RNA sequence: AUUUUUGGUAGAGGCGCACUCUUUAUCAGUAGAUUGUAGGAUAUGUUCAGGCAUAGAUGAAUACAUUCAAAAGGAAAUGGUGCCGAAGGUUUAAUAUUGCUGAGAUAUUAUACCUGGGUAUAUGGUUAAGAGCCAUAUAACUGUCAUCAAUGACUGAUGGAGUGCUACCUAAAGA
Numbered sequence: 001a002u003u004u005u006u007g008g009u010a011g012a013g014g015c016g017c018a019c020u021c022u023u024u025a026u027c028a029g030u031a032g033a034u035u036g037u038a039g040g041a042u043a044u045g046u047u048c049a050g051g052c053a054u055a056g057a058u059g060a061a062u063a064c065a066u067u068c069a070a071a072a073g074g075a076a077a078u079g080g081u082g083c084c085g086a087a088g089g090u091u092u093a094a095u096a097u098u099g100c101u102g103a104g105a106u107a108u109u110a111u112a113c114c115u116g117g118g119u120a121u122a123u124g125g126u127u128a129a130g131a132g133c134c135a136u137a138u139a140a141c142u143g144u145c146a147u148c149a150a151u152g153a154c155u156g157a158u159g160g161a162g163u164g165c166u167a168c169c170u171a172a173a174g175a
Base pairs, nucleotide, nucleotide: 007169008168009167010166011165016083017082018081019080020079022077023076024075032068033067035065036064037063038062087115088114089113090112092110093109094108095107096106097105098104116142117141119139120138121137122136123135124134125133126132144160145159146158147157148156149155
RNA: Lysine riboswitch aptamer
Organism: Anaeromicropila herbilytica